[Rfam]
RNA sequence: GGUUAAAAUUUUCAUCUAUUUUUAUUGUUAAGAUUAGUGUGAUUAAUGGAAUAAAUAAAAAGUUACACAUGACAUGUUACGAGUAUUUCAUGUUGACAAAUAGAGAUCAAUUUUUGAUAGUGGAAUAUCAAUGAAAUUUUUAAUA
Numbered sequence: 001g002g003u004u005a006a007a008a009u010u011u012u013c014a015u016c017u018a019u020u021u022u023u024a025u026u027g028u029u030a031a032g033a034u035u036a037g038u039g040u041g042a043u044u045a046a047u048g049g050a051a052u053a054a055a056u057a058a059a060a061a062g063u064u065a066c067a068c069a070u071g072a073c074a075u076g077u078u079a080c081g082a083g084u085a086u087u088u089c090a091u092g093u094u095g096a097c098a099a100a101u102a103g104a105g106a107u108c109a110a111u112u113u114u115u116g117a118u119a120g121u122g123g124a125a126u127a128u129c130a131a132u133g134a135a136a137u138u139u140u141u142a143a144u145a
Stems, first nucleotide, its partner, number of pairs: 002144007010136006018128002020125007028117006
RNA: MIR7502 microRNA precursor family